This 338-nucleotide RNA from Paraclostridium benzoelyticum belongs to the Rfam family "Bacterial RNase P class A". The base pairs follow the family's consensus structure, which is taken from published work. The match comes from Rfam's covariance-model search (286 bits). Rfam describes the family as follows. Ribonuclease P (RNase P) is a ubiquitous endoribonuclease, found in archaea, bacteria and eukarya as well as chloroplasts and mitochondria. NCBI's taxonomy places the organism under Bacteria, Clostridia, Peptostreptococcales, Peptostreptococcaceae, Paraclostridium.

RNA sequence: UGAGUAGAUCAGAUAAUCGCGGGUAGCGCUAGCUGCACGAGGAAAGUCGGAGCUCCAUAGAGCAGGGUGCUAGGUAACGCCUAGUGAGAGUGAUCUUAAGGAAAGUGCAACAGAAAAUAACCGCCAGUGAUGGUAAGGAUGAAAAGGUGAGGUAAGAGCUCACCAGCGGCUAGGUGACUAGUCGGCUGUGUAAACCCCACUCGGAGCAAGGCCAAGUUAGGAUAAAAAGAGUAUUGCUCGUACUCUCCGGUUGGUAGGCCGCUUGAGCUUAUUGGUGACAAUAAGCCUAGAAAGAUGAUUAUCUAAUACAGAACUCCGCUUAUAGAUUUGCUCGAUUU
Numbered sequence: 001u002g003a004g005u006a007g008a009u010c011a012g013a014u015a016a017u018c019g020c021g022g023g024u025a026g027c028g029c030u031a032g033c034u035g036c037a038c039g040a041g042g043a044a045a046g047u048c049g050g051a052g053c054u055c056c057a058u059a060g061a062g063c064a065g066g067g068u069g070c071u072a073g074g075u076a077a078c079g080c081c082u083a084g085u086g087a088g089a090g091u092g093a094u095c096u097u098a099a100g101g102a103a104a105g106u107g108c109a110a111c112a113g114a115a116a117a118u119a120a121c122c123g124c125c126a127g128u129g130a131u132g133g134u135a136a137g138g139a140u141g142a143a144a145a146g147g148u149g150a151g152g153u154a155a156g157a158g159c160u161c162a163c164c165a166g167c168g169g170c171u172a173g174g175u176g177a178c179u180a181g182u183c184g185g186c187u188g189u190g191u192a193a194a195c196c197c198c199a200c201u202c203g204g205a206g207c208a209a210g211g212c213c214a215a216g217u218u219a220g221g222a223u224a225a226a227a228a229g230a231g232u233a234u235u236g237c238u239c240g241u242a243c244u245c246u247c248c249g250g251u252u253g254g255u256a257g258g259c260c261g262c263u264u265g266a267g268c269u270u271a272u273u274g275g276u277g278a279c280a281a282u283a284a285g286c287c288u289a290g291a292a293a294g295a296u297g298a299u300u301a302u303c304u305a306a307u308a309c310a311g312a313a314c315u316c317c318g319c320u321u322a323u324a325g326a327u328u329u330g331c332u333c334g335a336u337u338u
Base pairs, nucleotide, nucleotide: 001334002333003332004331005330006329007328008327009326010325011323012303013302014301015300016299017298018297020039021038023036024035025034026033027032044321045320046319048318049317050316051315052314053206054205055204056203060239061238062237063236065202066201067200068199069198070084071083072082073081074080085099086097087096088095089094100197101196105195106194107191108190109189121138122137123134124133125132126131146164147163148162149161150160151159166186167184168183169182170181171180172179173178210260211259212258213257220248221247222246230244231243232242233241234240267286268285269284270283271282272281273280274279
Dot-bracket structure: ((((((((((((((((((.((.(((((....))))).))....[[[.[[[[[((((...[[[[.((((((((((.....)))))(((((....)))).)((...(((((...........((((((....))))..)).......((((((.......)))))).((((((((....))))))).)..)))..)))))))))))))...((((......(((.......(((((.]]]]))))).)))........))))......((((((((....))))))))..........)))))))..........]]]]]]]].).))))))))))....